[Rfam]
RNA sequence: AACCACACUAUCGAUGAAUGAAUUCACCCAUGAUAUGACGUGGUUGUUCCAUUUAGGAUGUGGACGUGGCAUCCUAUUAAUUUCGUGCGAUGGCUGGUAAUAGGAUGCCAUGUCUUUCUCCUAGGUGAAACAACCGCGUCAUUUCGCGGGUGAAUCCAUCCAUUGAUAGUGUGGUU
Numbered sequence: 001a002a003c004c005a006c007a008c009u010a011u012c013g014a015u016g017a018a019u020g021a022a023u024u025c026a027c028c029c030a031u032g033a034u035a036u037g038a039c040g041u042g043g044u045u046g047u048u049c050c051a052u053u054u055a056g057g058a059u060g061u062g063g064a065c066g067u068g069g070c071a072u073c074c075u076a077u078u079a080a081u082u083u084c085g086u087g088c089g090a091u092g093g094c095u096g097g098u099a100a101u102a103g104g105a106u107g108c109c110a111u112g113u114c115u116u117u118c119u120c121c122u123a124g125g126u127g128a129a130a131c132a133a134c135c136g137c138g139u140c141a142u143u144u145c146g147c148g149g150g151u152g153a154a155u156c157c158a159u160c161c162a163u164u165g166a167u168a169g170u171g172u173g174g175u176u
Stems, first nucleotide, its partner, number of pairs: 001176007009168007018159002022155007031146003035142005041136008051126002054123002057120002063114003069108011086097001

The record is a 176-nucleotide RNA from Oryza barthii, which matches "MIR807 microRNA precursor family" in Rfam. The base pairs follow the family's consensus structure, which was predicted with WAR. The organism belongs to Oryza, within Eukaryota. A reference for the family is Luo et al. (2006), "Rice embryogenic calli express a unique set of microRNAs, suggesting regulatory roles of microRNAs in plant post-embryogenic development", FEBS Lett.